FMN riboswitch aptamer (RFN element): a 152-nucleotide RNA sequence from Rhizobacter sp. Root404. Rfam links the family to the GO term FMN binding. The organism belongs to Rhizobacter, within Bacteria. The base pairs follow the family's consensus structure, which is taken from published work.
RNA sequence: ACACGUCUUCAGGGCGGGGUGAAAUUCCCCACCGGCGGUAUGCGGCGCAAGCCGCGAGCCCGCGAGCGCUCUUCACCUCUCCGGUGAAGAGGUCAGCAGAUUCGGUGAGAUGCCGAAGCCGACGGUCAGAGUCCGGAUGAAAGAAGAUGUGC
Numbered sequence: 001a002c003a004c005g006u007c008u009u010c011a012g013g014g015c016g017g018g019g020u021g022a023a024a025u026u027c028c029c030c031a032c033c034g035g036c037g038g039u040a041u042g043c044g045g046c047g048c049a050a051g052c053c054g055c056g057a058g059c060c061c062g063c064g065a066g067c068g069c070u071c072u073u074c075a076c077c078u079c080u081c082c083g084g085u086g087a088a089g090a091g092g093u094c095a096g097c098a099g100a101u102u103c104g105g106u107g108a109g110a111u112g113c114c115g116a117a118g119c120c121g122a123c124g125g126u127c128a129g130a131g132u133c134c135g136g137a138u139g140a141a142a143g144a145a146g147a148u149g150u151g152c
Stems, first nucleotide, its partner, number of pairs: 003150008017029003031132002033121002035063004058119002066097002101117005123135003